[Rfam]
RNA sequence: UCGGCCCCGGUUCACGCGACGCAUUCGGCGGAGCGACCCGGAGCC
Number, nucleotide and partner (000 for none) at each position: 001u000002c000003g045004g044005c043006c000007c041008c040009g039010g038011u000012u000013c000014a000015c035016g034017c033018g000019a000020c030021g029022c028023a000024u000025u000026c000027g000028g022029c021030g020031g000032a000033g017034c016035g015036a000037c000038c010039c009040g008041g007042a000043g005044c004045c003

The family of this 45-nucleotide RNA from Streptomyces lonarensis is "L31-Actinobacteria ribosomal protein leader". By type it is a cis-regulatory leader. A search with the family's covariance model found it, with a score of 44 bits. For this family Rfam cites "Discovery of 20 novel ribosomal leader candidates in bacteria and archaea" (Eckert and Weinberg, BMC Microbiol, 2020).